[Rfam]
RNA sequence: AUGAAGAAUGCGGAAGAGACUAUUUGAAUAUAGCGCCGAAGGAGUAAGUUAUAAACUAGCCAUGUAUAUCGAUGCUCUCAGGCAAAAGAACCGUACUUGGACA
Numbered sequence: 001a002u003g004a005a006g007a008a009u010g011c012g013g014a015a016g017a018g019a020c021u022a023u024u025u026g027a028a029u030a031u032a033g034c035g036c037c038g039a040a041g042g043a044g045u046a047a048g049u050u051a052u053a054a055a056c057u058a059g060c061c062a063u064g065u066a067u068a069u070c071g072a073u074g075c076u077c078u079c080a081g082g083c084a085a086a087a088g089a090a091c092c093g094u095a096c097u098u099g100g101a102c103a
Stems, first nucleotide, its partner, number of pairs: 006098002009095005020033004035083003038079002042077003048070001
RNA: Glycine riboswitch aptamer